[Rfam]
RNA sequence: UGCAACUGCCAUUGGGAUACACCCUGUGCUCGCUUUGAAUGAAAUGCAAGCAAGUGAACACAGCUGGUGGUAUCCAGUGGCCGUUUGGCG
Numbered sequence: 001u002g003c004a005a006c007u008g009c010c011a012u013u014g015g016g017a018u019a020c021a022c023c024c025u026g027u028g029c030u031c032g033c034u035u036u037g038a039a040u041g042a043a044a045u046g047c048a049a050g051c052a053a054g055u056g057a058a059c060a061c062a063g064c065u066g067g068u069g070g071u072a073u074c075c076a077g078u079g080g081c082c083g084u085u086u087g088g089c090g
Base pairs, nucleotide, nucleotide: 008081009080010079011078012077015075016074017073019071020070021068022067023066024063025062026061028059030057031056
A member of the RNA family "mir-317 microRNA precursor family" from Drosophila erecta, 90 nucleotides long.
Taxonomically the source falls in Sophophora (Eukaryota, Protostomia, Pterygota, Diptera).
It is one of the family's seed sequences.
On this family, see Aravin et al., Dev Cell 2003: "The small RNA profile during Drosophila melanogaster development".
Its family is annotated with miRNA-mediated post-transcriptional gene silencing and RISC complex in the Gene Ontology.